[Rfam]
RNA sequence: GUUGCAAAGCUCAAGGCCAUAGCAAAAGUGUGCAUAGCAUGGCCCUGUCAGAUUCCAACAAAUCUGCAAAUUUUGCU
Numbered sequence: 001g002u003u004g005c006a007a008a009g010c011u012c013a014a015g016g017c018c019a020u021a022g023c024a025a026a027a028g029u030g031u032g033c034a035u036a037g038c039a040u041g042g043c044c045c046u047g048u049c050a051g052a053u054u055c056c057a058a059c060a061a062a063u064c065u066g067c068a069a070a071u072u073u074u075g076c077u
Base pairs, nucleotide, nucleotide: 015044016043017042018041021077022076023075024074025073026072027071028040029039030038049066050065051064052063053062054061

Shown here is a 77-nucleotide RNA from Alligator mississippiensis, a member of the family "Mammalian CPEB3 ribozyme". The organism belongs to Alligator, within Eukaryota.